[Rfam]
RNA sequence: UUGGGGUGAGGUAGUAGGUUGUUUAGUUUUGGGGUCAAUCCCUGAGUUUCAGAUAACUAUACAAUCUACUGUCUUUCCUGA
Numbered sequence: 001u002u003g004g005g006g007u008g009a010g011g012u013a014g015u016a017g018g019u020u021g022u023u024u025a026g027u028u029u030u031g032g033g034g035u036c037a038a039u040c041c042c043u044g045a046g047u048u049u050c051a052g053a054u055a056a057c058u059a060u061a062c063a064a065u066c067u068a069c070u071g072u073c074u075u076u077c078c079u080g081a
Stems, first nucleotide, its partner, number of pairs: 001081006008075015024059004032042003
Overview
Rfam assigns this 81-nucleotide RNA from Leptobrachium leishanense to the family "let-7 microRNA precursor family". Pairs were carried over by alignment from the consensus structure, which was predicted with RNAalifold. Rfam 15.1 lists 8,694 matches to the family in 797 species. The family is grouped with related families in Rfam's "let-7 microRNA precursor clan". A reference for the family is Rougvie (2001), "Control of developmental timing in animals", Nat Rev Genet. From the family's description: This family represents the microRNAs (miRNA) let-7 and mir-98. let-7 was identified from a study of developmental timing in C. elegans, and was later shown to be part of a much larger class of non-coding RNAs termed miRNAs.